Annotation:
The family of this 150-nucleotide RNA from Evansella caseinilytica is "FMN riboswitch aptamer (RFN element)". The base pairs follow the family's consensus structure, which is taken from published work. Gene Ontology term of the family: FMN binding.
RNA sequence: AGAUGCCUUCGGGGUCGGGUGAAAUUCCCAACCGGCGGUGAUGAAAUGAAUCGCUUCAUUUCUAAGUCCGUGACCCGUCAUUAUUUUAAUGACGGUGGAUCUGGUGAGAAUCCAGAGCCGACAGUAUAGUCUGGAUGGGAGAAGGAUACA
Dot-bracket structure: .....(((((......(((.......))).[[((((((...........................[[))))...((.................))....(((((.......)))))]])).(((....]]))).......))))).....